[Rfam]
RNA sequence: AAGCCUAUUUACCAUAAGCGAGGUAUAGAGUUCCUACGUGCAAAUUGCAAUAAUCGUAGGAACUUAAUACCGUGCUCUUGGAGGGCUGUC
Numbered sequence: 001a002a003g004c005c006u007a008u009u010u011a012c013c014a015u016a017a018g019c020g021a022g023g024u025a026u027a028g029a030g031u032u033c034c035u036a037c038g039u040g041c042a043a044a045u046u047g048c049a050a051u052a053a054u055c056g057u058a059g060g061a062a063c064u065u066a067a068u069a070c071c072g073u074g075c076u077c078u079u080g081g082a083g084g085g086c087u088g089u090c
Stems, first nucleotide, its partner, number of pairs: 012081003017076004022071005028065010
Dot-bracket structure: ...........(((..((((.(((((.((((((((((..................)))))))))).))))).))))..))).........